Notes: A member of the RNA family "permuted transfer-messenger RNA" from Maricaulis maris, 214 nucleotides long. On this family, see Williams and Bartel, RNA 1996: "Phylogenetic analysis of tmRNA secondary structure". Rfam's curators write: Bacterial tmRNA, also known as 10Sa RNA or SsrA, is named for its dual tRNA and mRNA-like properties. The match comes from Rfam's covariance-model search (132 bits). By type it is a non-coding RNA gene.

RNA sequence: GGCGAUAAACGCGCUCGUAAUAACCGGACCGGACCCGGGGGCAGUACCCGGCGGCUCCACCAUAACUGUUCUGCGUUGGCGGACAUGCUUGGGGCCGAAACAGGAUCGACGGACGGGUAAAGGGGAUGGCUUUCGCCGGGGUGAGGCCCCUUACAGGCUCAUUUUCAGAGUUGCCAACGACAACUUUGCUGAAGAGGUCGCUCUCGCUGCGUAG
Numbered sequence: 001g002g003c004g005a006u007a008a009a010c011g012c013g014c015u016c017g018u019a020a021u022a023a024c025c026g027g028a029c030c031g032g033a034c035c036c037g038g039g040g041g042c043a044g045u046a047c048c049c050g051g052c053g054g055c056u057c058c059a060c061c062a063u064a065a066c067u068g069u070u071c072u073g074c075g076u077u078g079g080c081g082g083a084c085a086u087g088c089u090u091g092g093g094g095c096c097g098a099a100a101c102a103g104g105a106u107c108g109a110c111g112g113a114c115g116g117g118u119a120a121a122g123g124g125g126a127u128g129g130c131u132u133u134c135g136c137c138g139g140g141g142u143g144a145g146g147c148c149c150c151u152u153a154c155a156g157g158c159u160c161a162u163u164u165u166c167a168g169a170g171u172u173g174c175c176a177a178c179g180a181c182a183a184c185u186u187u188g189c190u191g192a193a194g195a196g197g198u199c200g201c202u203c204u205c206g207c208u209g210c211g212u213a214g
Stems, first nucleotide, its partner, number of pairs: 001137005014125003025115002029112003035051005052097007138150004